[Rfam]
RNA sequence: UGGAGGGGCCAAAACCCCUCCAGAAUUAUUCUGGAGGGGCCAAAACCCCUCCAGAAUUAUUCUGGAGGGGCCAAAACCCCUCCAGAAUCAUUCUGGAGGUGCCCAAACCCCUCCAGAAUCAUU
Numbered sequence: 001u002g003g004a005g006g007g008g009c010c011a012a013a014a015c016c017c018c019u020c021c022a023g024a025a026u027u028a029u030u031c032u033g034g035a036g037g038g039g040c041c042a043a044a045a046c047c048c049c050u051c052c053a054g055a056a057u058u059a060u061u062c063u064g065g066a067g068g069g070g071c072c073a074a075a076a077c078c079c080c081u082c083c084a085g086a087a088u089c090a091u092u093c094u095g096g097a098g099g100u101g102c103c104c105a106a107a108c109c110c111c112u113c114c115a116g117a118a119u120c121a122u123u
Stems, first nucleotide, its partner, number of pairs: 002052005015039011063115008077101001079099008